[Rfam]
RNA sequence: UUUCGAUAAUGGCAAACCUACCUAAAGGUAGGGACGCAAAGCCACAGGCCUAAGGCAAAAGCUAUGGCAGCUGGGUUACCGAA
Numbered sequence: 001u002u003u004c005g006a007u008a009a010u011g012g013c014a015a016a017c018c019u020a021c022c023u024a025a026a027g028g029u030a031g032g033g034a035c036g037c038a039a040a041g042c043c044a045c046a047g048g049c050c051u052a053a054g055g056c057a058a059a060a061g062c063u064a065u066g067g068c069a070g071c072u073g074g075g076u077u078a079c080c081g082a083a
Stems, first nucleotide, its partner, number of pairs: 012037002017032006040077004045073003048068003055062002
Notes: Rfam assigns this 83-nucleotide RNA sequence from Filobacillus milosensis to the family "c-di-GMP-I riboswitch aptamer". Taxonomically the source falls in Filobacillus (Bacteria, Bacilli, Caryophanales, Bacillaceae). It scores 86 bits against the family's covariance model. The family's consensus secondary structure is taken from published work.